[Rfam]
RNA sequence: ACUCCGAGCCGGCCGUCUCGCCGGCUCGGGGACCGGGGACCCACCGCAGCACCGGGGUGAAGCGCUCCACGGCCCACCGGGUCGCGGGCGCCGGGCGCCUUCCCGCCCGAACCCGUCAGCUAACUCGGUAGGCGGCCGUGGAAGAGAGG
Numbered sequence: 001a002c003u004c005c006g007a008g009c010c011g012g013c014c015g016u017c018u019c020g021c022c023g024g025c026u027c028g029g030g031g032a033c034c035g036g037g038g039a040c041c042c043a044c045c046g047c048a049g050c051a052c053c054g055g056g057g058u059g060a061a062g063c064g065c066u067c068c069a070c071g072g073c074c075c076a077c078c079g080g081g082u083c084g085c086g087g088g089c090g091c092c093g094g095g096c097g098c099c100u101u102c103c104c105g106c107c108c109g110a111a112c113c114c115g116u117c118a119g120c121u122a123a124c125u126c127g128g129u130a131g132g133c134g135g136c137c138g139u140g141g142a143a144g145a146g147a148g149g
Base pairs, nucleotide, nucleotide: 002031003030004029005028006027007026008025009024010023011022012021013020032129033128034127035126036125037124042054055114056113057112063090064089065088066087093108094107095106096105
RNA: c-di-AMP riboswitch aptamer (ydaO/yuaA leader)